[Rfam]
RNA sequence: CGGACAGGGGGGUUCCUGCUCAUCCGGCAGGGCCUGUCCGAACAGGCCGCGCGGACGCCUGCGCCGAGCGGCCGGUGGUUGUCGCUCGGGGGUGAUCGCCG
Numbered sequence: 001c002g003g004a005c006a007g008g009g010g011g012g013u014u015c016c017u018g019c020u021c022a023u024c025c026g027g028c029a030g031g032g033c034c035u036g037u038c039c040g041a042a043c044a045g046g047c048c049g050c051g052c053g054g055a056c057g058c059c060u061g062c063g064c065c066g067a068g069c070g071g072c073c074g075g076u077g078g079u080u081g082u083c084g085c086u087c088g089g090g091g092g093u094g095a096u097c098g099c100c101g
Base pairs, nucleotide, nucleotide: 001040002039003038004037005036006035007034008033014032015031016030017029018028019027020026045073046072047071048070049069050068052066053065054064